[Rfam]
RNA sequence: UCCGUGGUGACACGGAAUCUGAAGGAAGCGAGCGACAAAUCUCCGGUCUGAGGGACACGAACUUCAUAUAAGGCUAAGUAUCAUUGGAUGAGUUUGCGAAUGUGCCUAUCGAAAAACUGGAAGAAGCCUCGAACGACAUAUCGAAACUUAGUCCAAUUAGGUUCGCCACCAAAUAACGCUUGGGAAUGGGCGAAUAGCCGGAAAGGCUACUGGA
Numbered sequence: 001u002c003c004g005u006g007g008u009g010a011c012a013c014g015g016a017a018u019c020u021g022a023a024g025g026a027a028g029c030g031a032g033c034g035a036c037a038a039a040u041c042u043c044c045g046g047u048c049u050g051a052g053g054g055a056c057a058c059g060a061a062c063u064u065c066a067u068a069u070a071a072g073g074c075u076a077a078g079u080a081u082c083a084u085u086g087g088a089u090g091a092g093u094u095u096g097c098g099a100a101u102g103u104g105c106c107u108a109u110c111g112a113a114a115a116a117c118u119g120g121a122a123g124a125a126g127c128c129u130c131g132a133a134c135g136a137c138a139u140a141u142c143g144a145a146a147c148u149u150a151g152u153c154c155a156a157u158u159a160g161g162u163u164c165g166c167c168a169c170c171a172a173a174u175a176a177c178g179c180u181u182g183g184g185a186a187u188g189g190g191c192g193a194a195u196a197g198c199c200g201g202a203a204a205g206g207c208u209a210c211u212g213g214a
Stems, first nucleotide, its partner, number of pairs: 001016006029213001031211002036206001042202004046195002049192002062190002065188003074183002077180003081176001083174001086154004092147004
A member of the RNA family "Group II catalytic intron D1-D4-3" from Enterococcus alcedinis, 214 nucleotides long. The match comes from Rfam's covariance-model search (66 bits). On this family, see Bonen and Vogel, Trends Genet 2001: "The ins and outs of group II introns". Group II introns are found in rRNA, tRNA and mRNA of organelles in fungi, plants and protists, and also in mRNA in bacteria. Its family is annotated with Group II intron splicing in the Gene Ontology.